Shown here is a 92-nucleotide RNA sequence from Mycoplana azooxidifex, a member of the family "Rhizobiales sRNA Atu_Ti1". The literature on the family includes a 2012 paper in RNA Biol by Wilms et al., "Deep sequencing uncovers numerous small RNAs on all four replicons of the plant pathogen Agrobacterium tumefaciens". The source organism's lineage runs through Bacteria, Pseudomonadati, Pseudomonadota, Alphaproteobacteria and Mycoplana. The family's consensus secondary structure was predicted with WAR. Rfam classes the family as a small RNA.

RNA sequence: GUCCACUCGGCGGCGGACCAGAGCCAUAAGCCUGUCAUGGCCAUGGCUGCAGCCGGCCGAUAUUGCGUCGUCAUGACGCCCAGGCCGGCUGC
Dot-bracket structure: ((((..........))))....((((....(.......)....)))).((((((((((....(.(((((.....)))))..)))))))))))
Numbered sequence: 001g002u003c004c005a006c007u008c009g010g011c012g013g014c015g016g017a018c019c020a021g022a023g024c025c026a027u028a029a030g031c032c033u034g035u036c037a038u039g040g041c042c043a044u045g046g047c048u049g050c051a052g053c054c055g056g057c058c059g060a061u062a063u064u065g066c067g068u069c070g071u072c073a074u075g076a077c078g079c080c081c082a083g084g085c086c087g088g089c090u091g092c
Stems, first nucleotide, its partner, number of pairs: 001018004023047004031039001049092010063082001065079005